[Rfam]
RNA sequence: GGUCAUGAGUGACAGCGCUAAGCCCCGGCUGGCUGUCCGGCAACCCAACUCCGCGUGGGGGUGCCCCGGGUGAAGACCGGGUUCGGCGUCAAUACCGGCGCCGCGACAAGCGCGGGCC
Number, nucleotide and partner (000 for none) at each position: 001g078002g077003u076004c075005a000006u000007g000008a000009g038010u000011g037012a036013c035014a034015g033016c032017g000018c000019u000020a000021a030022g029023c000024c000025c000026c000027g000028g000029c022030u021031g000032g016033c015034u014035g013036u012037c011038c009039g065040g064041c063042a000043a000044c061045c060046c059047a000048a056049c055050u000051c000052c000053g000054c000055g049056u048057g000058g000059g046060g045061g044062u000063g041064c040065c039066c000067c000068g000069g000070g000071u000072g000073a000074a000075g004076a003077c002078c001079g000080g000081g107082u106083u105084c000085g102086g101087c100088g099089u098090c097091a000092a000093u000094a000095c000096c000097g090098g089099c088100g087101c086102c085103g000104c000105g083106a082107c081108a000109a000110g000111c000112g000113c000114g000115g000116g000117c000118c000
Description
This 118-nucleotide RNA from Stackebrandtia nassauensis belongs to the Rfam family "SAM (S-adenosyl methionine) riboswitch aptamer". Gene Ontology terms of the family: regulation of gene expression and S-adenosylmethionine metabolic process. The organism belongs to Stackebrandtia nassauensis, within Bacteria.